[Rfam]
RNA sequence: CCGGCUCCGGUUCACCCGUUCAUCAACAGGGACCCGGCGGCC
Number, nucleotide and partner (000 for none) at each position: 001c000002c000003g042004g041005c040006u000007c037008c036009g035010g034011u000012u000013c000014a000015c031016c030017c029018g027019u026020u025021c000022a000023u000024c000025a020026a019027c018028a000029g017030g016031g015032a000033c000034c010035c009036g008037g007038c000039g000040g005041c004042c003
This 42-nucleotide RNA from Lentzea albidocapillata belongs to the Rfam family "L31-Actinobacteria ribosomal protein leader". For this family Rfam cites "Discovery of 20 novel ribosomal leader candidates in bacteria and archaea" (Eckert and Weinberg, BMC Microbiol, 2020). The family's RNA type in Rfam is cis-regulatory leader. The sequence is in the family's curated seed alignment.